[Rfam]
RNA sequence: CGGUUUCCUGCUUCAACAAUGUUUGAAAGGAACCCG
Numbered sequence: 001c002g003g004u005u006u007c008c009u010g011c012u013u014c015a016a017c018a019a020u021g022u023u024u025g026a027a028a029g030g031a032a033c034c035c036g
Base pairs, nucleotide, nucleotide: 001036002035003034005032006031007030008029012027013026014025015024016023017021
Dot-bracket structure: (((.((((...((((((...).))))).)))).)))
Description:
Rfam assigns this 36-nucleotide RNA from Phascolarctos cinereus to the family "Iron response element I". Its family is annotated with response to iron ion in the Gene Ontology. The literature on the family includes a 1987 paper in Science by Hentze et al., "Identification of the iron-responsive element for the translational regulation of human ferritin mRNA". The family's consensus secondary structure is taken from published work. Rfam classes the family as a cis-regulatory element.